[Rfam]
RNA sequence: AAAAAAGGUUGGUUGGCUAAAUAUGCCAUGCUCGCCCUAGAUUGGUGAGUGUUGUAUGGCUAUCAAGACAUAUAACCAACAUCAUAUGUAAAUUCCAAAGGGUUGGCUCGUCCGCCCGUCCCUCUU
Numbered sequence: 001a002a003a004a005a006a007g008g009u010u011g012g013u014u015g016g017c018u019a020a021a022u023a024u025g026c027c028a029u030g031c032u033c034g035c036c037c038u039a040g041a042u043u044g045g046u047g048a049g050u051g052u053u054g055u056a057u058g059g060c061u062a063u064c065a066a067g068a069c070a071u072a073u074a075a076c077c078a079a080c081a082u083c084a085u086a087u088g089u090a091a092a093u094u095c096c097a098a099a100g101g102g103u104u105g106g107c108u109c110g111u112c113c114g115c116c117c118g119u120c121c122c123u124c125u126u
Stems, first nucleotide, its partner, number of pairs: 008080005014028004029051008052075007099123004104118003109114001

The family of this 126-nucleotide RNA from Tetracentron sinense is "U11 spliceosomal RNA". Rfam 15.1 lists 2,595 matches to the family in 1,202 species. Clan: U1 clan. Lineage of the source: Eukaryota > Euphyllophyta > Magnoliopsida > Mesangiospermae > Tetracentron. The family's consensus secondary structure is taken from published work. By type it is a spliceosomal small nuclear RNA.